[Rfam]
RNA sequence: GAGGGACGGCCCCUCGAAAUCGCCUUACAGGAGGAGAUUUCAAACCACCGUCAGCGGCUUGGGUCAAAAGCCCCGGUCGUGAGCGUGACGGAAAAGGCCCUGCUAGACGGGGUCAGGU
Numbered sequence: 001g002a003g004g005g006a007c008g009g010c011c012c013c014u015c016g017a018a019a020u021c022g023c024c025u026u027a028c029a030g031g032a033g034g035a036g037a038u039u040u041c042a043a044a045c046c047a048c049c050g051u052c053a054g055c056g057g058c059u060u061g062g063g064u065c066a067a068a069a070g071c072c073c074c075g076g077u078c079g080u081g082a083g084c085g086u087g088a089c090g091g092a093a094a095a096g097g098c099c100c101u102g103c104u105a106g107a108c109g110g111g112g113u114c115a116g117g118u
Base pairs, nucleotide, nucleotide: 001015002014003013004012005011016041017040018039019038020037021036023034024033025032026031046117048091049090050089051088052087053086054080055079057077058076059075061073062072063071064070096114097113098112099111100110101109
RNA: Group II catalytic intron D1-D4-2